[Rfam]
RNA sequence: UGGCUAAUGAUGAUAAACUCUUUAUCUUAGCGGAUUUCAGUGAGAUUUGUCAAUGAUCUGAAUGUUACACACACUGAAGCCU
Numbered sequence: 001u002g003g004c005u006a007a008u009g010a011u012g013a014u015a016a017a018c019u020c021u022u023u024a025u026c027u028u029a030g031c032g033g034a035u036u037u038c039a040g041u042g043a044g045a046u047u048u049g050u051c052a053a054u055g056a057u058c059u060g061a062a063u064g065u066u067a068c069a070c071a072c073a074c075u076g077a078a079g080c081c082u
Base pairs, nucleotide, nucleotide: 002081003080004079005078
Rfam assigns this 82-nucleotide sequence from Papaver somniferum to the family "Small nucleolar RNA R11/Z151". Rfam 15.1 lists 802 matches to the family in 218 species. The organism belongs to Papaver, within Eukaryota. For this family Rfam cites "Identification of 66 box C/D snoRNAs in Arabidopsis thaliana: extensive gene duplications generated multiple isoforms predicting new ribosomal RNA 2'-O-methylation sites" (Barneche et al., J Mol Biol, 2001).